Xanthomonas sRNA sX9: a 76-nucleotide sequence from Pseudogulbenkiania ferrooxidans. On this family, see Schmidtke et al., Nucleic Acids Res 2011: "Genome-wide transcriptome analysis of the plant pathogen Xanthomonas identifies sRNAs with putative virulence functions". The source organism's lineage runs through Bacteria, Pseudomonadati, Chromobacteriaceae, Pseudogulbenkiania and Pseudogulbenkiania ferrooxidans.
RNA sequence: AUGGACUACGUGUCCAUUCCGGUUCCUGAGCUCCAGCCGCCCCUCGCUGACGACCGCUCGUUACACUUUGAGAGCC
Numbered sequence: 001a002u003g004g005a006c007u008a009c010g011u012g013u014c015c016a017u018u019c020c021g022g023u024u025c026c027u028g029a030g031c032u033c034c035a036g037c038c039g040c041c042c043c044u045c046g047c048u049g050a051c052g053a054c055c056g057c058u059c060g061u062u063a064c065a066c067u068u069u070g071a072g073a074g075c076c
Base pairs, nucleotide, nucleotide: 002016003015004014005013006012021034022033025030047074048073051070052069053068